[Rfam]
RNA sequence: GAACAGCAAAGGCAAACCCGGAGAGAUUCGGGGACGCAAAGCCAACGGGGCCCGUCGGGGGUCGGCCGGGUUGCACCA
Numbered sequence: 001g002a003a004c005a006g007c008a009a010a011g012g013c014a015a016a017c018c019c020g021g022a023g024a025g026a027u028u029c030g031g032g033g034a035c036g037c038a039a040a041g042c043c044a045a046c047g048g049g050g051c052c053c054g055u056c057g058g059g060g061g062u063c064g065g066c067c068g069g070g071u072u073g074c075a076c077c078a
Stems, first nucleotide, its partner, number of pairs: 012037002017032006040072004046068003049063005
RNA: c-di-GMP-I riboswitch aptamer
Organism: Salinibacterium sp. dk2585